[Rfam]
RNA sequence: AAAGGAGCAAUAGGCAGAACUUAUAUAUGUUCAAGAUUGGUUGGACGUUUCUACAAACUACCGGAAUAGUUGACUAUAAGUGGGGAGAUGCAAGGA
Numbered sequence: 001a002a003a004g005g006a007g008c009a010a011u012a013g014g015c016a017g018a019a020c021u022u023a024u025a026u027a028u029g030u031u032c033a034a035g036a037u038u039g040g041u042u043g044g045a046c047g048u049u050u051c052u053a054c055a056a057a058c059u060a061c062c063g064g065a066a067u068a069g070u071u072g073a074c075u076a077u078a079a080g081u082g083g084g085g086a087g088a089u090g091c092a093a094g095g096a
Stems, first nucleotide, its partner, number of pairs: 019081007029046006056071005

The record is a 96-nucleotide sequence from Lachnospiraceae bacterium 9_1_43BFAA, which matches "Purine riboswitch aptamer" in Rfam. A search with the family's covariance model found it, with a score of 45 bits. Lineage of the source: Bacteria > Bacillati > Bacillota > Clostridia > Lachnospiraceae.